[Rfam]
RNA sequence: UAUCUACCCUGGUCUGGAAGACUAGUGAUUUUGUUGUUUUAAUUUCAGUAUUAACAAUAAAUCACAUUCUUCCCAGAUUGUGGUUGAUC
Numbered sequence: 001u002a003u004c005u006a007c008c009c010u011g012g013u014c015u016g017g018a019a020g021a022c023u024a025g026u027g028a029u030u031u032u033g034u035u036g037u038u039u040u041a042a043u044u045u046c047a048g049u050a051u052u053a054a055c056a057a058u059a060a061a062u063c064a065c066a067u068u069c070u071u072c073c074c075a076g077a078u079u080g081u082g083g084u085u086g087a088u089c
Base pairs, nucleotide, nucleotide: 003086007083008082010080011079012078013077014076015075016074017073019070020069021068023066025065026064027063028062029061030060031059033058034057035056036055037054038053
This 89-nucleotide RNA sequence from Lottia gigantea belongs to the Rfam family "mir-7 microRNA precursor family". The family has 132 seed sequences and 2,589 matches in Rfam 15.1. Gene Ontology terms of the family: RISC complex and miRNA-mediated post-transcriptional gene silencing. A reference for the family is Lagos-Quintana et al. (2001), "Identification of novel genes coding for small expressed RNAs", Science. From the family's description: This family represents the microRNA (miRNA) precursor mir-7. Rfam's curators put it in the seed alignment.